[Rfam]
RNA sequence: CUCUUAUCCAGAGAGGCAGAGGGACCGGCCCGCUGAAGCCUCGACAACCUGUUCUUAGAACAAGGUGCCAAUUCCGGCAGAUGAUUCUGGAAGAUGAGAG
Numbered sequence: 001c002u003c004u005u006a007u008c009c010a011g012a013g014a015g016g017c018a019g020a021g022g023g024a025c026c027g028g029c030c031c032g033c034u035g036a037a038g039c040c041u042c043g044a045c046a047a048c049c050u051g052u053u054c055u056u057a058g059a060a061c062a063a064g065g066u067g068c069c070a071a072u073u074c075c076g077g078c079a080g081a082u083g084a085u086u087c088u089g090g091a092a093g094a095u096g097a098g099a100g
Base pairs, nucleotide, nucleotide: 001100002099003098004097005096006095007094008093013042014041015040016039017038021031022030023029025077026076027075028074043069045067046066048065049064050062051061052060053059073092078089079088080087081086